[Rfam]
Rfam assigns this 93-nucleotide sequence from Salvia splendens to the family "mir-399 microRNA precursor family". A search with the family's covariance model found it, with a score of 57 bits. For this family Rfam cites "Computational Identification of Plant MicroRNAs and Their Targets, Including a Stress-Induced miRNA" (Jones-Rhoades and Bartel, Mol Cell, 2004). mir-399 was identified in both Arabidopsis thaliana and Oryza sativa computationally and was later experimentally verified. mir-399 is thought to target mRNAs coding for a phosphatase transporter. The mature sequence is excised from the 3' arm of the hairpin. The source organism's lineage runs through Eukaryota, Streptophytina, lamiids, Salvia and core Calosphace.
Nucleotides: 093
Stems, first nucleotide, its partner, number of pairs: 006088003011083003015079005021073004027067007035059003
Number, partner (000 for none) and nucleotide at each position: 001000g002000a003000g004000c005000a006088a007087a008086u009000a010000a011083c012082a013081g014000u015079g016078c017077g018076a019075u020000c021073c022072u023071c024070c025000a026000u027067u028066g029065g030064c031063a032062g033061g034000a035059a036058g037057a038000a039000c040000a041000u042000g043000c044000a045000c046000a047000u048000g049000c050000a051000u052000a053000c054000u055000u056000g057037u058036u059035u060000c061033u062032u063031u064030g065029c066028c067027a068000a069000a070024g071023g072022a073021g074000a075019a076018u077017u078016g079015c080000c081013c082012u083011g084000c085000c086008a087007u088006u089000c090000a091000a092000u093000c